[Rfam]
RNA sequence: GUUGUACUUGGGCAGUAGUGUAGAGAUUGGUUUGCCUGUUAAUGAAUUCAAACUAAUCUCUACACUGCUGCCCAAGAACAUC
Numbered sequence: 001g002u003u004g005u006a007c008u009u010g011g012g013c014a015g016u017a018g019u020g021u022a023g024a025g026a027u028u029g030g031u032u033u034g035c036c037u038g039u040u041a042a043u044g045a046a047u048u049c050a051a052a053c054u055a056a057u058c059u060c061u062a063c064a065c066u067g068c069u070g071c072c073c074a075a076g077a078a079c080a081u082c
Stems, first nucleotide, its partner, number of pairs: 003080003007076028038047003
RNA: mir-3129 microRNA precursor family